MIR168 microRNA precursor family: a 125-nucleotide RNA sequence from Daucus carota.
On this family, see Rhoades et al., Cell 2002: "Prediction of plant microRNA targets".
Gene Ontology terms of the family: RISC complex and miRNA-mediated post-transcriptional gene silencing.
The family has 10 seed sequences and 518 matches in Rfam 15.1.
The family's consensus secondary structure was predicted with WAR.

RNA sequence: GUUACGGCAGUUUCUAAUUCGCUUGGUGCAGGUCGGGACCAUCUCAUAUUAUACACUCUGAUUUCAUUUUCAGAUGAAUUCUAUGGUCCCGUCUUGCAUCAAUUGAAUCGGAUACUCCUGUGAAU
Numbered sequence: 001g002u003u004a005c006g007g008c009a010g011u012u013u014c015u016a017a018u019u020c021g022c023u024u025g026g027u028g029c030a031g032g033u034c035g036g037g038a039c040c041a042u043c044u045c046a047u048a049u050u051a052u053a054c055a056c057u058c059u060g061a062u063u064u065c066a067u068u069u070u071c072a073g074a075u076g077a078a079u080u081c082u083a084u085g086g087u088c089c090c091g092u093c094u095u096g097c098a099u100c101a102a103u104u105g106a107a108u109c110g111g112a113u114a115c116u117c118c119u120g121u122g123a124a125u
Base pairs, nucleotide, nucleotide: 013112014111017108018107019106020105023102024101025100026099027098028097029096030095031094032093034091035090036089037088038087040085041084